[Rfam]
RNA sequence: GCAUUCCGAGGAUAGAGGAAGUCGGGGCGACCCGGCUGGCCGAGAAAUUCUCG
Dot-bracket structure: ...................(((((((....)))))))................

Record summary
The record is a 53-nucleotide sequence, which matches "leuA-Halobacteria RNA" in Rfam.